[Rfam]
RNA sequence: ACUCGAGGAAGGAGGUGUUGCUGCAGUGAUUUCAUUGCGGACGCGAGAGGUGGCUGCGGGCUAGCGGCCUGUCACCACACCCAGUGCGGUGCCGGACCAGCGCGUGAGUCGAGCGUGCGGCCGGCCCAAUCCAGAGCAGUCACCCGACCCGCGGGCCGCCGGUACGUCCGGCCGGCUUCCGCCACCCGGAUCCGUCCGGGCGGCGGGACCAUGGCCCGCGGGUCGCCUGCU
Numbered sequence: 001a002c003u004c005g006a007g008g009a010a011g012g013a014g015g016u017g018u019u020g021c022u023g024c025a026g027u028g029a030u031u032u033c034a035u036u037g038c039g040g041a042c043g044c045g046a047g048a049g050g051u052g053g054c055u056g057c058g059g060g061c062u063a064g065c066g067g068c069c070u071g072u073c074a075c076c077a078c079a080c081c082c083a084g085u086g087c088g089g090u091g092c093c094g095g096a097c098c099a100g101c102g103c104g105u106g107a108g109u110c111g112a113g114c115g116u117g118c119g120g121c122c123g124g125c126c127c128a129a130u131c132c133a134g135a136g137c138a139g140u141c142a143c144c145c146g147a148c149c150c151g152c153g154g155g156c157c158g159c160c161g162g163u164a165c166g167u168c169c170g171g172c173c174g175g176c177u178u179c180c181g182c183c184a185c186c187c188g189g190a191u192c193c194g195u196c197c198g199g200g201c202g203g204c205g206g207g208a209c210c211a212u213g214g215c216c217c218g219c220g221g222g223u224c225g226c227c228u229g230c231u
Base pairs, nucleotide, nucleotide: 015057016056017055019053059126060125061124062123064121065120067118068117070115071114072113145225146224147223148222149221150220151219152218153217154216155215156214157213158176159175160174161173162172163171
The family of this 231-nucleotide RNA sequence from Streptomyces sp. NRRL S-1521 is "Actinobacteria sRNA Ms_IGR-5". It is annotated as a small RNA. NCBI's taxonomy places the organism under Bacteria, Actinomycetota, Kitasatosporales, Streptomycetaceae, Streptomyces.